[Rfam]
Nucleotides: 096
Stems, first nucleotide, its partner, number of pairs: 002091007010084002015079001016075006034060002037057002
Number, partner (000 for none) and nucleotide at each position: 001000g002091g003090u004089u005088g006087g007086u008085c009000u010084g011083a012000u013000a014000g015079u016075g017074g018073u019072g020071g021070g022000u023000u024000a025000u026000c027000a028000g029000a030000a031000c032000u033000u034060a035059c036000u037057a038056g039000c040000a041000u042000u043000a044000g045000u046000g047000u048000c049000a050000c051000u052000a053000a054000a055000g056038u057037u058000g059035g060034u061000c062000u063000a064000c065000a066000a067000u068000c069000c070021c071020c072019u073018a074017c075016u076000g077000c078000u079015a080000g081000a082000u083011u084010u085008g086007a087006c088005u089004g090003g091002c092000g093000u094000u095000u096000u
Y RNA: a 96-nucleotide sequence from Cebus imitator. Y RNAs are components of the Ro ribonucleoprotein particle (Ro RNP), in association with Ro60 and La proteins. By type it is a non-coding RNA gene. The family has 104 seed sequences and 26,986 matches in Rfam 15.1. Lineage of the source: Eukaryota > Amniota > Cebidae > Cebinae > Cebus.